[Rfam]
Small nucleolar RNA SNORA44: a 132-nucleotide RNA sequence from Cavia porcellus. ACA44 is a member of the H/ACA class of snoRNA that guide the sites of modification of uridines to pseudouridines. By type it is an H/ACA-box small nucleolar RNA. Its family is annotated with nucleolus and RNA processing in the Gene Ontology. Lineage of the source: Eukaryota > Eumetazoa > Sarcopterygii > Rodentia > Cavia. Pairs were carried over by alignment from the consensus structure, which was predicted with PFOLD.
RNA sequence: GACUCUCAUUCCAACCCAUGAAAAUAGUGUAAUGGUCAUGGGAUCUCCAACUGCAUGCGAGAGCACCUGGAGAGACUUUGACAGCUCAGGUCAGCCCAAUACCUGUGGCUGCCACUCACCUUUCCUAUAAGG
Number, nucleotide and partner (000 for none) at each position: 001g037002a036003c035004u034005c000006u000007c000008a000009u000010u000011c000012c000013a000014a000015c000016c000017c000018a000019u000020g000021a000022a000023a000024a000025u000026a000027g000028u000029g000030u000031a000032a000033u000034g004035g003036u002037c001038a000039u000040g000041g000042g000043a000044u000045c000046u000047c000048c000049a000050a000051c000052u000053g000054c000055a000056u000057g000058c000059g000060a000061g000062a000063g000064c000065a000066c000067c000068u000069g125070g124071a123072g122073a121074g120075a000076c000077u000078u000079u000080g000081a000082c000083a000084g112085c111086u000087c105088a104089g103090g102091u000092c000093a000094g000095c000096c000097c000098a000099a000100u000101a000102c090103c089104u088105g087106u000107g000108g000109c000110u000111g085112c084113c000114a000115c000116u000117c000118a000119c000120c074121u073122u072123u071124c070125c069126u000127a000128u000129a000130a000131g000132g000